[Rfam]
RNA sequence: CAACGUUCAUCCAAUUUAUUUGGACGCAUGAAAUGAGAAUAGGGAACGGGAUUCUCAU
Numbered sequence: 001c002a003a004c005g006u007u008c009a010u011c012c013a014a015u016u017u018a019u020u021u022g023g024a025c026g027c028a029u030g031a032a033a034u035g036a037g038a039a040u041a042g043g044g045a046a047c048g049g050g051a052u053u054c055u056c057a058u
Stems, first nucleotide, its partner, number of pairs: 004048005010024005033058008
Dot-bracket structure: ...[[[[[.(((((.....)))))........((((((((...]]]]]..))))))))
Shown here is a 58-nucleotide RNA from Prochlorococcus marinus, a member of the family "Glutamine-II riboswitch aptamer". It is one of the family's seed sequences. Its family is annotated with glutamine binding in the Gene Ontology.